A member of the RNA family "Trypanosomatid snoRNA TB6Cs1H4" from Trypanosoma cruzi, 73 nucleotides long. NCBI's taxonomy places the organism under Eukaryota, Discoba, Metakinetoplastina, Trypanosoma, Schizotrypanum. The family has 4 seed sequences and 72 matches in Rfam 15.1. It is annotated as an H/ACA-box small nucleolar RNA.
RNA sequence: CCCCUCAACGUUAGAGGUCCCUUGGUGGCUGUAUCUAUCGAUGUCGCUUCACAGGAUACCCAUUGAGGCUAGA
Numbered sequence: 001c002c003c004c005u006c007a008a009c010g011u012u013a014g015a016g017g018u019c020c021c022u023u024g025g026u027g028g029c030u031g032u033a034u035c036u037a038u039c040g041a042u043g044u045c046g047c048u049u050c051a052c053a054g055g056a057u058a059c060c061c062a063u064u065g066a067g068g069c070u071a072g073a
Stems, first nucleotide, its partner, number of pairs: 003068005017057004025047005
A reference for the family is Liang et al. (2005), "A genome-wide analysis of C/D and H/ACA-like small nucleolar RNAs in Trypanosoma brucei reveals a trypanosome-specific pattern of rRNA modification", RNA.